[Rfam]
Notes:
The family of this 88-nucleotide RNA from Takifugu flavidus is "Small nucleolar RNA SNORD60". Clan: SNORD60 clan. Rfam classes the family as a C/D-box small nucleolar RNA. NCBI's taxonomy places the organism under Eukaryota, Deuterostomia, Percomorphaceae, Tetradontoidea, Takifugu. The base pairs follow the family's consensus structure, which was predicted with PFOLD. A search with the family's covariance model found it, with a score of 67 bits.

RNA sequence: AGCCCGUGAUGACAGAUUAAACAACUUUUCUGACACCUCGUAUGAGUGCUGCCCUGCAGCUCCUGAUUCUAAAUCUGAUCUGAGGCUC
Number, nucleotide and partner (000 for none) at each position: 001a087002g086003c085004c084005c000006g000007u000008g000009a000010u000011g000012a000013c000014a000015g000016a000017u000018u000019a000020a000021a000022c000023a000024a000025c000026u000027u000028u000029u000030c000031u000032g000033a000034c000035a000036c000037c000038u000039c000040g000041u000042a000043u000044g000045a000046g000047u000048g060049c059050u058051g057052c056053c000054c000055u000056g052057c051058a050059g049060c048061u000062c000063c000064u000065g000066a000067u000068u000069c000070u000071a000072a000073a000074u000075c000076u000077g000078a000079u000080c000081u000082g000083a000084g004085g003086c002087u001088c000